[Rfam]
RNA sequence: AUGCGAUGAGUCGAUUGGCUCCUAGGAGCUUUUUGCGCUGAGGAGGUCUACAUUUAAUUGUAACGCAGGAGCGGACCUUGAGCAGUUGUGUGAACCAGCUGUUCUCAUCGAAAGAUGCCUCGAAUCCCCAGUCUACGGAUUGGGGAUUUUC
Numbered sequence: 001a002u003g004c005g006a007u008g009a010g011u012c013g014a015u016u017g018g019c020u021c022c023u024a025g026g027a028g029c030u031u032u033u034u035g036c037g038c039u040g041a042g043g044a045g046g047u048c049u050a051c052a053u054u055u056a057a058u059u060g061u062a063a064c065g066c067a068g069g070a071g072c073g074g075a076c077c078u079u080g081a082g083c084a085g086u087u088g089u090g091u092g093a094a095c096c097a098g099c100u101g102u103u104c105u106c107a108u109c110g111a112a113a114g115a116u117g118c119c120u121c122g123a124a125u126c127c128c129c130a131g132u133c134u135a136c137g138g139a140u141u142g143g144g145g146a147u148u149u150u151c
Base pairs, nucleotide, nucleotide: 012035013034014033017030018029019028020027021026040121041120042119043118044078045077046076047075064073065072066071080104081103082102083101084100085099086098106117107116108115109114125146126145127144128143129142130141131140132139133138
RNA: MarS sRNA